[Rfam]
RNA: DUF3800-VIII RNA
Organism: Reticulomyxa filosa
RNA sequence: UGGGUCCUGCUCACCUCGAAGUCCUAAGUUUAUACUUGGGAUACGUGAGCUCACAUAGGGGAAGCGGGACCCA
Numbered sequence: 001u002g003g004g005u006c007c008u009g010c011u012c013a014c015c016u017c018g019a020a021g022u023c024c025u026a027a028g029u030u031u032a033u034a035c036u037u038g039g040g041a042u043a044c045g046u047g048a049g050c051u052c053a054c055a056u057a058g059g060g061g062a063a064g065c066g067g068g069a070c071c072c073a
Stems, first nucleotide, its partner, number of pairs: 001073011014061004021042009